RNA sequence: UGCGAGGGCACUCUGUGCUAAUCAUAAUCAAUAUGUUAGUAACAAUUUGUUACCUUGCUAGAUUAAAUUCUACUAAACCCUAUUCCGAGAACCACUACAUGGUUACUUGGUCAUAUUAGUAGAAACAAUUAA
Numbered sequence: 001u002g003c004g005a006g007g008g009c010a011c012u013c014u015g016u017g018c019u020a021a022u023c024a025u026a027a028u029c030a031a032u033a034u035g036u037u038a039g040u041a042a043c044a045a046u047u048u049g050u051u052a053c054c055u056u057g058c059u060a061g062a063u064u065a066a067a068u069u070c071u072a073c074u075a076a077a078c079c080c081u082a083u084u085c086c087g088a089g090a091a092c093c094a095c096u097a098c099a100u101g102g103u104u105a106c107u108u109g110g111u112c113a114u115a116u117u118a119g120u121a122g123a124a125a126c127a128a129u130u131a132a
Stems, first nucleotide, its partner, number of pairs: 002058006010050002014044003017040006064131003069124001071122001072120003076117002085110005090104001092102002
The record is a 132-nucleotide RNA sequence from Pieris brassicae, which matches "Small nucleolar RNA psi18S-841/snoR66" in Rfam. It scores 53 bits against the family's covariance model. psi18S-841 is a member of the H/ACA class of snoRNA. This family is responsible for guiding the modification of uridine 841 in Drosophila 18S rRNA to pseudouridine. The family's RNA type in Rfam is H/ACA-box small nucleolar RNA. Taxonomically the source falls in Pieris (Eukaryota, Mandibulata, Heteroneura, Obtectomera). Clan: SNORA28 clan.